[Rfam]
RNA sequence: GGGGGGCAUACAAGAGUCUAGUUGUUACCCCGAUACAGUCUUCCAACAUAAAGUUUGUAAUUUCCUGCUUGUAGUACUGUGAGGAAGUUCUGCAAGUCUCAAAUUACAAGACAUUACA
Numbered sequence: 001g002g003g004g005g006g007c008a009u010a011c012a013a014g015a016g017u018c019u020a021g022u023u024g025u026u027a028c029c030c031c032g033a034u035a036c037a038g039u040c041u042u043c044c045a046a047c048a049u050a051a052a053g054u055u056u057g058u059a060a061u062u063u064c065c066u067g068c069u070u071g072u073a074g075u076a077c078u079g080u081g082a083g084g085a086a087g088u089u090c091u092g093c094a095a096g097u098c099u100c101a102a103a104u105u106a107c108a109a110g111a112c113a114u115u116a117c118a
Base pairs, nucleotide, nucleotide: 001031002030003029005026006025007024008023056111058109067097068096069095070094071093072092073091074090076088077087078086
Dot-bracket structure: (((.((((..............))))..)))........................(.(........((((((((.(((.......))).))))))))...........).).......
A member of the RNA family "Small nucleolar RNA snoR104" from Asparagus officinalis, 118 nucleotides long. The family's consensus secondary structure was predicted with WAR. The organism belongs to Asparagus, within Eukaryota. By type it is an H/ACA-box small nucleolar RNA.